[Rfam]
RNA sequence: AAGUUAGUAAUAAUUAUAAAAAUAAUUUCUCAUUUUAACAUACUUAAUAUGGGCAUGAUAAACUUCUUAUUACACCUAUUGAAUCUGAGCUAC
Numbered sequence: 001a002a003g004u005u006a007g008u009a010a011u012a013a014u015u016a017u018a019a020a021a022a023u024a025a026u027u028u029c030u031c032a033u034u035u036u037a038a039c040a041u042a043c044u045u046a047a048u049a050u051g052g053g054c055a056u057g058a059u060a061a062a063c064u065u066c067u068u069a070u071u072a073c074a075c076c077u078a079u080u081g082a083a084u085c086u087g088a089g090c091u092a093c
Stems, first nucleotide, its partner, number of pairs: 003093002006091002
RNA: Small nucleolar RNA snoR8a